[Rfam]
RNA sequence: UCCAAGCUGCAUUGUUCGUAAUACGAUUAAGUUUUAACCUUUAUGCUGUAAAAGGGAGUUUUAAAUUGAAACUGAAAUGGCAAGCCUCGUUCUUUUCGCGAACAACGAGGACAGACAGGAAGGUUUCUGCGAACACCCACUUUGAGGAGUGGUGGUUUAAAACUUUCUAAUGACUUACGGCAAAGGCGGCUUCUAC
Numbered sequence: 001u002c003c004a005a006g007c008u009g010c011a012u013u014g015u016u017c018g019u020a021a022u023a024c025g026a027u028u029a030a031g032u033u034u035u036a037a038c039c040u041u042u043a044u045g046c047u048g049u050a051a052a053a054g055g056g057a058g059u060u061u062u063a064a065a066u067u068g069a070a071a072c073u074g075a076a077a078u079g080g081c082a083a084g085c086c087u088c089g090u091u092c093u094u095u096u097c098g099c100g101a102a103c104a105a106c107g108a109g110g111a112c113a114g115a116c117a118g119g120a121a122g123g124u125u126u127c128u129g130c131g132a133a134c135a136c137c138c139a140c141u142u143u144g145a146g147g148a149g150u151g152g153u154g155g156u157u158u159a160a161a162a163c164u165u166u167c168u169a170a171u172g173a174c175u176u177a178c179g180g181c182a183a184a185g186g187c188g189g190c191u192u193c194u195a196c
Stems, first nucleotide, its partner, number of pairs: 004192007012183004017179003031163003035159003038155002054138003058134004065128001068127006079116001085110007

Shown here is a 196-nucleotide RNA from Sporosarcina pasteurii, a member of the family "6S / SsrS RNA". The family's RNA type in Rfam is non-coding RNA gene.